[Rfam]
RNA sequence: UCACCCGUCAAUUUGGUUGUGAAAUCUUUUCGAAACGGGAUAUCACAGCCAUUUUGACGAGUUGAG
Numbered sequence: 001u002c003a004c005c006c007g008u009c010a011a012u013u014u015g016g017u018u019g020u021g022a023a024a025u026c027u028u029u030u031c032g033a034a035a036c037g038g039g040a041u042a043u044c045a046c047a048g049c050c051a052u053u054u055u056g057a058c059g060a061g062u063u064g065a066g
Stems, first nucleotide, its partner, number of pairs: 006059006014051009025042001027040004
Dot-bracket structure: .....((((((..(((((((((..(.((((......)))).))))))))))..)))))).......
This 66-nucleotide sequence from Oryctes borbonicus belongs to the Rfam family "mir-2 microRNA precursor family".
It scores 50 bits against the family's covariance model.
Taxonomically the source falls in Oryctes (Eukaryota, Eumetazoa, Hexapoda, Aparaglossata).
Rfam links the family to the GO terms RISC complex and miRNA-mediated post-transcriptional gene silencing.